Source information:
This 46-nucleotide sequence from Limnoglobus roseus belongs to the Rfam family "Acido-Lenti-1 RNA". By type it is a small RNA.
[Rfam]
RNA sequence: CCAGAGGCUAGCGCCCCUGGCUAACGACUACCGCCGCUCCGCGGCU
Numbered sequence: 001c002c003a004g005a006g007g008c009u010a011g012c013g014c015c016c017c018u019g020g021c022u023a024a025c026g027a028c029u030a031c032c033g034c035c036g037c038u039c040c041g042c043g044g045c046u
Base pairs, nucleotide, nucleotide: 001020002019003018004017006015007014008013033045034044035043036042037041